[Rfam]
RNA sequence: UGCCUAAACCAAGCGAUUGGCAUGGCAUUAAAUCCUAGAUGGAAGUAAGCUCUUCGUCAGAGCACCAUCUAGGUUAUCAACCGAAAGGUUGGUAGGAGUCGCAAGGCUUC
Numbered sequence: 001u002g003c004c005u006a007a008a009c010c011a012a013g014c015g016a017u018u019g020g021c022a023u024g025g026c027a028u029u030a031a032a033u034c035c036u037a038g039a040u041g042g043a044a045g046u047a048a049g050c051u052c053u054u055c056g057u058c059a060g061a062g063c064a065c066c067a068u069c070u071a072g073g074u075u076a077u078c079a080a081c082c083g084a085a086a087g088g089u090u091g092g093u094a095g096g097a098g099u100c101g102c103a104a105g106g107c108u109u110c
Base pairs, nucleotide, nucleotide: 001027002026003025004024009020010019011018012017034073035072036071037070038069039068040067041066042065049063050062051061052060053059075094076093077092078091079090080089081088082087095110096109097108098107099106100105
Rfam assigns this 110-nucleotide sequence to the family "LOOT RNA". Pairs were carried over by alignment from the consensus structure, which is taken from published work. It is one of the family's seed sequences. By type it is a small RNA.